Background:
Rfam assigns this 79-nucleotide RNA sequence from Hermetia illucens to the family "drz-agam-1 ribozyme". Rfam links the family to the GO term catalytic activity. Taxonomically the source falls in Hermetia (Eukaryota, Bilateria, Insecta, Stratiomyomorpha). The base pairs follow the family's consensus structure, which is taken from published work.
RNA sequence: UACUACUAAAUUCUAUCUCCACCUCCACGUGGUGACGGCUGGGAGCUCUUUAUUAACGAAAAGCUGCAGACGGAGAAGG
Numbered sequence: 001u002a003c004u005a006c007u008a009a010a011u012u013c014u015a016u017c018u019c020c021a022c023c024u025c026c027a028c029g030u031g032g033u034g035a036c037g038g039c040u041g042g043g044a045g046c047u048c049u050u051u052a053u054u055a056a057c058g059a060a061a062a063g064c065u066g067c068a069g070a071c072g073g074a075g076a077a078g079g
Stems, first nucleotide, its partner, number of pairs: 012079003016075001018073002021033003044065004049060003